About this RNA: A member of the RNA family "UnaL2 LINE 3' element" from Megalops atlanticus, 54 nucleotides long. NCBI's taxonomy places the organism under Eukaryota, Bilateria, Deuterostomia, Neopterygii, Megalops. It is annotated as a cis-regulatory element. A search with the family's covariance model found it, with a score of 56 bits.
[Rfam]
RNA sequence: AACUGUAACCUUUGUAAGCCACUCUGGAUAAGAGCGUCUGCUAAAUGACAAUAU
Numbered sequence: 001a002a003c004u005g006u007a008a009c010c011u012u013u014g015u016a017a018g019c020c021a022c023u024c025u026g027g028a029u030a031a032g033a034g035c036g037u038c039u040g041c042u043a044a045a046u047g048a049c050a051a052u053a054u
Base pairs, nucleotide, nucleotide: 013043014041015040016039020036022034023033024032025031